The record is a 115-nucleotide sequence from Bradyrhizobium ivorense, which matches "Glycine riboswitch aptamer" in Rfam. A search with the family's covariance model found it, with a score of 40 bits. Lineage of the source: Bacteria > Alphaproteobacteria > Hyphomicrobiales > Nitrobacteraceae > Bradyrhizobium.
RNA sequence: AUCUGGAGAGAGACGAACAUGGCCCAACACGACAGGCCGUGCGUCCACCGAAGGGGAUAGUCCGCGAUCUGGCCUCGGCCCGAUGCGGAUCAAGCUCUCAGGUACCGUGACAGAU
Numbered sequence: 001a002u003c004u005g006g007a008g009a010g011a012g013a014c015g016a017a018c019a020u021g022g023c024c025c026a027a028c029a030c031g032a033c034a035g036g037c038c039g040u041g042c043g044u045c046c047a048c049c050g051a052a053g054g055g056g057a058u059a060g061u062c063c064g065c066g067a068u069c070u071g072g073c074c075u076c077g078g079c080c081c082g083a084u085g086c087g088g089a090u091c092a093a094g095c096u097c098u099c100a101g102g103u104a105c106c107g108u109g110a111c112a113g114a115u
Stems, first nucleotide, its partner, number of pairs: 001115005012045004047103003050099002054097003060090007